[Rfam]
RNA: ivy-DE RNA
Organism: Pseudomonas sp. GM21
RNA sequence: UGACCAUGGGGUCGGGACGUUCUGACUGUUCCAGGGUCGGAGUGACCUACGGGUACAGGGAGUGCCUGCGCAAGGGCCGGGUCAGGCAAAGC
Numbered sequence: 001u002g003a004c005c006a007u008g009g010g011g012u013c014g015g016g017a018c019g020u021u022c023u024g025a026c027u028g029u030u031c032c033a034g035g036g037u038c039g040g041a042g043u044g045a046c047c048u049a050c051g052g053g054u055a056c057a058g059g060g061a062g063u064g065c066c067u068g069c070g071c072a073a074g075g076g077c078c079g080g081g082u083c084a085g086g087c088a089a090a091g092c
Stems, first nucleotide, its partner, number of pairs: 001084005010078004014048003018044001020042008050068007